[Rfam]
RNA sequence: CCCUCCGAAGUUUCCCUCAGGAUAGCUGGCAUUCUGGGAAAUAAACAGUUUUAUCCGGUAAAGCGAAUGAUUAGAGGCAUUGGGGGCGAAACGUCCUCAACCUAUUCUCAAACUUUAAAUGGGUGAGAAGCCUGACUCGCUCAAACGGAGUUGGGCCUUGAAUGUGAGUGCCAAGUGGGCCAUUUUUGGUAAGCAGAACUGGCGCUGUGGGAUGAACCAAACGUUCGGUUAAGGUGCCUAACGCGACGCUCAUGAGACACCACAAAAGGUGUUGGUUGGUCCAGACAGCAGGACGGUGGCCAUGGAAGUUGGAACCCGCUAAGGAGUGUGUAACAACUCACCUGCCGAAUCAACCAGCCCUGAAAAUGGAUGGCGCUGGAGCGUCGGACCUAUACCGGACCGUCAUUGCAAGCUGAGUCGGUAAUAUGUGGUGUGAGGGCAAGCCGCAUGACUCAGGCGCGGAAUUGUUGUGACGAGUAGGAGGGUCGCCGUGGUGAGCGGGAAGCUUCGGGCGUGAGCCUGAGUGGAGCCGCCACGGGUGCAGAU
Numbered sequence: 001c002c003c004u005c006c007g008a009a010g011u012u013u014c015c016c017u018c019a020g021g022a023u024a025g026c027u028g029g030c031a032u033u034c035u036g037g038g039a040a041a042u043a044a045a046c047a048g049u050u051u052u053a054u055c056c057g058g059u060a061a062a063g064c065g066a067a068u069g070a071u072u073a074g075a076g077g078c079a080u081u082g083g084g085g086g087c088g089a090a091a092c093g094u095c096c097u098c099a100a101c102c103u104a105u106u107c108u109c110a111a112a113c114u115u116u117a118a119a120u121g122g123g124u125g126a127g128a129a130g131c132c133u134g135a136c137u138c139g140c141u142c143a144a145a146c147g148g149a150g151u152u153g154g155g156c157c158u159u160g161a162a163u164g165u166g167a168g169u170g171c172c173a174a175g176u177g178g179g180c181c182a183u184u185u186u187u188g189g190u191a192a193g194c195a196g197a198a199c200u201g202g203c204g205c206u207g208u209g210g211g212a213u214g215a216a217c218c219a220a221a222c223g224u225u226c227g228g229u230u231a232a233g234g235u236g237c238c239u240a241a242c243g244c245g246a247c248g249c250u251c252a253u254g255a256g257a258c259a260c261c262a263c264a265a266a267a268g269g270u271g272u273u274g275g276u277u278g279g280u281c282c283a284g285a286c287a288g289c290a291g292g293a294c295g296g297u298g299g300c301c302a303u304g305g306a307a308g309u310u311g312g313a314a315c316c317c318g319c320u321a322a323g324g325a326g327u328g329u330g331u332a333a334c335a336a337c338u339c340a341c342c343u344g345c346c347g348a349a350u351c352a353a354c355c356a357g358c359c360c361u362g363a364a365a366a367u368g369g370a371u372g373g374c375g376c377u378g379g380a381g382c383g384u385c386g387g388a389c390c391u392a393u394a395c396c397g398g399a400c401c402g403u404c405a406u407u408g409c410a411a412g413c414u415g416a417g418u419c420g421g422u423a424a425u426a427u428g429u430g431g432u433g434u435g436a437g438g439g440c441a442a443g444c445c446g447c448a449u450g451a452c453u454c455a456g457g458c459g460c461g462g463a464a465u466u467g468u469u470g471u472g473a474c475g476a477g478u479a480g481g482a483g484g485g486u487c488g489c490c491g492u493g494g495u496g497a498g499c500g501g502g503a504a505g506c507u508u509c510g511g512g513c514g515u516g517a518g519c520c521u522g523a524g525u526g527g528a529g530c531c532g533c534c535a536c537g538g539g540u541g542c543a544g545a546u
Stems, first nucleotide, its partner, number of pairs: 001485006011024001013022003027173007049128008061116001062114002068110003073105001075103003080100006087093001130156009179203004184198005208219003223400005229394001233390003242387001244386001247383003267361003271358010288345005294318003300312002319323001324339001328337002401475006408468004487541001489538008498530002505525002511520003

Overview:
This 546-nucleotide part of an RNA from Fasciolopsis buskii belongs to the Rfam family "Eukaryotic large subunit ribosomal RNA". The match comes from Rfam's covariance-model search (2590 bits).